[Rfam]
RNA sequence: GGGUCCGGUGGGCCGCUGACCUCCACAAAGAACCGGGGGAAAGAACUACCCGCCCACCCUGCCGGAAGGCCCGCCUCACUCGUCCGGGUGACCGGCUUGCAGGGGCGGGACACGGGCGGUUACGUUCACCGCGAGAAGCGCGUUCGGCGCGACAACCGCAAACAGAUACGGCCCUCGAUCGGGACGGGCAUCCCGGACGAGGGCCUGACCGAUCAGGAAGCAGUCUUUCCCA
Numbered sequence: 001g002g003g004u005c006c007g008g009u010g011g012g013c014c015g016c017u018g019a020c021c022u023c024c025a026c027a028a029a030g031a032a033c034c035g036g037g038g039g040a041a042a043g044a045a046c047u048a049c050c051c052g053c054c055c056a057c058c059c060u061g062c063c064g065g066a067a068g069g070c071c072c073g074c075c076u077c078a079c080u081c082g083u084c085c086g087g088g089u090g091a092c093c094g095g096c097u098u099g100c101a102g103g104g105g106c107g108g109g110a111c112a113c114g115g116g117c118g119g120u121u122a123c124g125u126u127c128a129c130c131g132c133g134a135g136a137a138g139c140g141c142g143u144u145c146g147g148c149g150c151g152a153c154a155a156c157c158g159c160a161a162a163c164a165g166a167u168a169c170g171g172c173c174c175u176c177g178a179u180c181g182g183g184a185c186g187g188g189c190a191u192c193c194c195g196g197a198c199g200a201g202g203g204c205c206u207g208a209c210c211g212a213u214c215a216g217g218a219a220g221c222a223g224u225c226u227u228u229c230c231c232a
Stems, first nucleotide, its partner, number of pairs: 007213001011063003076091006105148002108145004170205005176199002181194004216230005
RNA: Streptomyces sRNA 4677
Organism: Streptomyces sp. AVP053U2